Shown here is a 35-nucleotide RNA from Chrysochloris asiatica, a member of the family "Iron response element I". The family has 62 seed sequences and 6,829 matches in Rfam 15.1. Taxonomically the source falls in Chrysochloris (Eukaryota, Deuterostomia, Sarcopterygii, Chrysochloridae). The literature on the family includes a 2008 paper in J Biol Chem by Sammarco et al., "Ferritin L and H subunits are differentially regulated on a post-transcriptional level".

RNA sequence: CGGUCUCCUGUUUCAACAGUGCUUGAAUGGAACCC
Number, nucleotide and partner (000 for none) at each position: 001c000002g034003g033004u032005c000006u031007c030008c029009u000010g028011u000012u027013u026014c025015a024016a023017c021018a000019g000020u000021g017022c000023u016024u015025g014026a013027a012028u010029g008030g007031a006032a004033c003034c002035c000